[Rfam]
RNA sequence: GAAGGAAACCAGUGUCUGGCGGUUCCGCUUCUCCUUUGUCCCUCGGGGCAUUGGUUUGCGUUUCCGCCGUGGCCAGGGCCGGGUAGUGUUGCGGGAGUCUGCGCCUCGGAAGGUAGCAUCUCUUCGGAGUGUGAAGACCGUGGCGUGUCGUCGCGACGCUGGCCGGUUCUGACGAAAUGGUUUUCUUUACCCCGUCUUGAAACACGG
Numbered sequence: 001g002a003a004g005g006a007a008a009c010c011a012g013u014g015u016c017u018g019g020c021g022g023u024u025c026c027g028c029u030u031c032u033c034c035u036u037u038g039u040c041c042c043u044c045g046g047g048g049c050a051u052u053g054g055u056u057u058g059c060g061u062u063u064c065c066g067c068c069g070u071g072g073c074c075a076g077g078g079c080c081g082g083g084u085a086g087u088g089u090u091g092c093g094g095g096a097g098u099c100u101g102c103g104c105c106u107c108g109g110a111a112g113g114u115a116g117c118a119u120c121u122c123u124u125c126g127g128a129g130u131g132u133g134a135a136g137a138c139c140g141u142g143g144c145g146u147g148u149c150g151u152c153g154c155g156a157c158g159c160u161g162g163c164c165g166g167u168u169c170u171g172a173c174g175a176a177a178u179g180g181u182u183u184u185c186u187u188u189a190c191c192c193c194g195u196c197u198u199g200a201a202a203c204a205c206g207g
Stems, first nucleotide, its partner, number of pairs: 001188011017069006074171007192207004
RNA: Eukaryotic large subunit ribosomal RNA, nucleotides 418 to 624